[Rfam]
RNA sequence: AGGGUUCCGACAGGAGCGGCCUUGGAUCACAUGUGGCGGCAUCCAAUGCACUUCAUGUGUUCUCAGGUCGCCCCUGCCGGCCUUCC
Numbered sequence: 001a002g003g004g005u006u007c008c009g010a011c012a013g014g015a016g017c018g019g020c021c022u023u024g025g026a027u028c029a030c031a032u033g034u035g036g037c038g039g040c041a042u043c044c045a046a047u048g049c050a051c052u053u054c055a056u057g058u059g060u061u062c063u064c065a066g067g068u069c070g071c072c073c074c075u076g077c078c079g080g081c082c083u084u085c086c
Base pairs, nucleotide, nucleotide: 007080008079011076012075013074014073016071017070018069019068024063025062026061028059029058030057031056032055
This 86-nucleotide RNA from Populus tomentosa belongs to the Rfam family "MIR398 microRNA precursor family". Taxonomically the source falls in Populus (Eukaryota, Streptophyta, eudicotyledons, fabids). Its family is annotated with miRNA-mediated post-transcriptional gene silencing and RISC complex in the Gene Ontology. For this family Rfam cites "Computational identification of plant microRNAs and their targets, including a stress-induced miRNA" (Jones-Rhoades and Bartel, Mol Cell, 2004).